[Rfam]
RNA sequence: GUAAAACUCAAAAAAUGGCGGCACUUUCGUAGUCAGAACAGAAAGUGCCCCCACAGUUUGAGUUCCAC
Numbered sequence: 001g002u003a004a005a006a007c008u009c010a011a012a013a014a015a016u017g018g019c020g021g022c023a024c025u026u027u028c029g030u031a032g033u034c035a036g037a038a039c040a041g042a043a044a045g046u047g048c049c050c051c052c053a054c055a056g057u058u059u060g061a062g063u064u065c066c067a068c
Stems, first nucleotide, its partner, number of pairs: 005064008016053003020049009
mir-290 microRNA precursor family: a 68-nucleotide RNA from Rousettus aegyptiacus. The match comes from Rfam's covariance-model search (62 bits). Its Rfam clan is "mir-290 clan". Rfam links the family to the GO terms miRNA-mediated post-transcriptional gene silencing and RISC complex. The family has 31 seed sequences and 565 matches in Rfam 15.1. Pairs were carried over by alignment from the consensus structure, which was predicted with RNAalifold.